The family of this 46-nucleotide RNA from Parnassius apollo is "Histone 3' UTR stem-loop". From the family's description: The mRNAs of metazoan histone genes lack a poly-A tail. 3' end processing occurs at a site between a highly conserved stem-loop (modelled by this family) and a purine rich region around 20 nts downstream (the histone downstream element, or HDE). The stem-loop is bound by a 31 kDa stem-loop binding protein (SLBP - also termed the histone hairpin binding protein, or HBP). Together with U7 snRNA binding of the HDE, SLBP binding nucleate s the formation of the processing complex. Taxonomically the source falls in Parnassius (Eukaryota, Panarthropoda, Pancrustacea, Neoptera).

RNA sequence: CAAACGGCUUUCUUCAAAGCCACCGAAGUUUUAUAAAAAUACACCG
Numbered sequence: 001c002a003a004a005c006g007g008c009u010u011u012c013u014u015c016a017a018a019g020c021c022a023c024c025g026a027a028g029u030u031u032u033a034u035a036a037a038a039a040u041a042c043a044c045c046g
Stems, first nucleotide, its partner, number of pairs: 006021006
Dot-bracket structure: .....((((((....)))))).........................

The family's RNA type in Rfam is cis-regulatory element.